[Rfam]
RNA sequence: UAAGCCCUGCGAUGUACGUGCCUACCGAUUGUUUUGAGCCACAAAUGUUUUAUCGGGAGUUUUGCGUCCGGCCGGCGAAGACAUGCCUCGUUCGAGUGGAAGUCUGAUGCUGGUCGGCCAUGCACCCACCUGCUAGCUGGCAGGUUCAAAACUGAGGUACAGUACGGCAUAACGGGGCUUUU
Numbered sequence: 001u002a003a004g005c006c007c008u009g010c011g012a013u014g015u016a017c018g019u020g021c022c023u024a025c026c027g028a029u030u031g032u033u034u035u036g037a038g039c040c041a042c043a044a045a046u047g048u049u050u051u052a053u054c055g056g057g058a059g060u061u062u063u064g065c066g067u068c069c070g071g072c073c074g075g076c077g078a079a080g081a082c083a084u085g086c087c088u089c090g091u092u093c094g095a096g097u098g099g100a101a102g103u104c105u106g107a108u109g110c111u112g113g114u115c116g117g118c119c120a121u122g123c124a125c126c127c128a129c130c131u132g133c134u135a136g137c138u139g140g141c142a143g144g145u146u147c148a149a150a151a152c153u154g155a156g157g158u159a160c161a162g163u164a165c166g167g168c169a170u171a172a173c174g175g176g177g178c179u180u181u182u
Stems, first nucleotide, its partner, number of pairs: 002180008012170004017166003031152010055127003059123002062120001064118001070115007081103002086099002089096001
Rfam assigns this 182-nucleotide sequence from Brevibacillus fluminis to the family "6S / SsrS RNA".
The family's RNA type in Rfam is non-coding RNA gene.
The organism belongs to Brevibacillus, within Bacteria.
On this family, see Elkina et al., RNA Biol 2017: "6S RNA in Rhodobacter sphaeroides: 6S RNA and pRNA transcript levels peak in late exponential phase and gene deletion causes a high salt stress phenotype".
The base pairs follow the family's consensus structure, which is taken from published work.